RNA: mir-2060 microRNA precursor family
Organism: Branchiostoma belcheri
RNA sequence: AUUUCUGUAUGGAUGGUGUUCAGCACCAAGGACAGACAUGUUUACCUGUGUGUGGAUGGUGUUUGGCACCAAGGACAGGCUGUGUGUCUGU
Numbered sequence: 001a002u003u004u005c006u007g008u009a010u011g012g013a014u015g016g017u018g019u020u021c022a023g024c025a026c027c028a029a030g031g032a033c034a035g036a037c038a039u040g041u042u043u044a045c046c047u048g049u050g051u052g053u054g055g056a057u058g059g060u061g062u063u064u065g066g067c068a069c070c071a072a073g074g075a076c077a078g079g080c081u082g083u084g085u086g087u088c089u090g091u
Stems, first nucleotide, its partner, number of pairs: 001081001002079003006075001014071007022063007030051001032049004038043001